[Rfam]
RNA sequence: GUCGAUCAGAGCUACUUGGACUUCAGAUCAUCCUCGGGAAGGUGCGCUCCUUCACGUCACCCGGCCGAGGAC
Numbered sequence: 001g002u003c004g005a006u007c008a009g010a011g012c013u014a015c016u017u018g019g020a021c022u023u024c025a026g027a028u029c030a031u032c033c034u035c036g037g038g039a040a041g042g043u044g045c046g047c048u049c050c051u052u053c054a055c056g057u058c059a060c061c062c063g064g065c066c067g068a069g070g071a072c
Stems, first nucleotide, its partner, number of pairs: 004029004008023002038053005
This 72-nucleotide RNA sequence from Propioniciclava tarda belongs to the Rfam family "Actinobacteria sRNA Ms_AS-8". On this family, see Li et al., RNA 2013: "Identification of small RNAs in Mycobacterium smegmatis using heterologous Hfq". It scores 55 bits against the family's covariance model. The source organism's lineage runs through Bacteria, Bacillati, Actinomycetes, Propionibacteriaceae and Propioniciclava. It is annotated as a small RNA.